[Rfam]
RNA sequence: AAAAAAGGCCAGUUUGGCUAAUUAUGCCACCCUCAUCCUUGUUGGUGAGUGUUGUAUGGCUAUUAAGACAUAUGGCUGACAUCAUUUUUGUGAAAUUAUAGGGUUGGCUCGCCAAGCCAAUUAAUAAA
Number, nucleotide and partner (000 for none) at each position: 001a000002a000003a000004a000005a000006a000007g000008g080009c000010c078011a077012g076013u000014u000015u029016g028017g027018c026019u000020a000021a000022u000023u000024a000025u000026g018027c017028c016029a015030c051031c000032c049033u048034c047035a046036u045037c044038c000039u000040u000041g000042u000043u000044g037045g036046u035047g034048a033049g032050u000051g030052u075053u074054g073055u072056a071057u070058g069059g000060c000061u000062a000063u000064u000065a000066a000067g000068a000069c058070a057071u056072a055073u054074g053075g052076c012077u011078g010079a000080c008081a000082u000083c000084a000085u000086u000087u000088u000089u000090g000091u000092g000093a000094a000095a000096u000097u126098a125099u124100a000101g000102g122103g121104u120105u119106g118107g117108c116109u115110c000111g000112c000113c000114a000115a109116g108117c107118c106119a105120a104121u103122u102123a000124a099125u098126a097127a000128a000
RNA: U11 spliceosomal RNA